The family of this 77-nucleotide RNA from Bombyx mori is "mir-971 microRNA precursor family". Taxonomically the source falls in Bombyx (Eukaryota, Opisthokonta, Hexapoda, Heteroneura). The match comes from Rfam's covariance-model search (67 bits). Rfam links the family to the GO terms RISC complex and miRNA-mediated post-transcriptional gene silencing.
[Rfam]
RNA sequence: GAUGCGCUUCACUCUAAGUAUGAACACCAAGCGUAUUUUCAUAGAGUUUGGUGUUCUACCUUACAGUGAAAUGAACU
Numbered sequence: 001g002a003u004g005c006g007c008u009u010c011a012c013u014c015u016a017a018g019u020a021u022g023a024a025c026a027c028c029a030a031g032c033g034u035a036u037u038u039u040c041a042u043a044g045a046g047u048u049u050g051g052u053g054u055u056c057u058a059c060c061u062u063a064c065a066g067u068g069a070a071a072u073g074a075a076c077u
Stems, first nucleotide, its partner, number of pairs: 006072001008070006015063003025053008